Background:
The record is a 179-nucleotide RNA sequence from Pusillibacter faecalis, which matches "Lysine riboswitch aptamer" in Rfam. Gene Ontology term of the family: lysine biosynthetic process. Pairs were carried over by alignment from the consensus structure, which is taken from published work.
RNA sequence: AAGCAUGAUAGAGGUGCGAACGUCAAGAGUAUUUCUUCCCAUAUGACAGGCACAGGGAAGGGAGAAAGGGGCUUUCGCCGAGGUUCCGGACGUCUCAGCCUGGAGGCGCGGAGUCGGGUCGUGGGAGAAGAUCUCACGGACUGUCGUCCCUUUAUUGGGGACGGAGCGCUGUCGUGAGU
Numbered sequence: 001a002a003g004c005a006u007g008a009u010a011g012a013g014g015u016g017c018g019a020a021c022g023u024c025a026a027g028a029g030u031a032u033u034u035c036u037u038c039c040c041a042u043a044u045g046a047c048a049g050g051c052a053c054a055g056g057g058a059a060g061g062g063a064g065a066a067a068g069g070g071g072c073u074u075u076c077g078c079c080g081a082g083g084u085u086c087c088g089g090a091c092g093u094c095u096c097a098g099c100c101u102g103g104a105g106g107c108g109c110g111g112a113g114u115c116g117g118g119u120c121g122u123g124g125g126a127g128a129a130g131a132u133c134u135c136a137c138g139g140a141c142u143g144u145c146g147u148c149c150c151u152u153u154a155u156u157g158g159g160g161a162c163g164g165a166g167c168g169c170u171g172u173c174g175u176g177a178g179u
Stems, first nucleotide, its partner, number of pairs: 006174006016078005022072003032063008082115007091108005116142002119139008144164007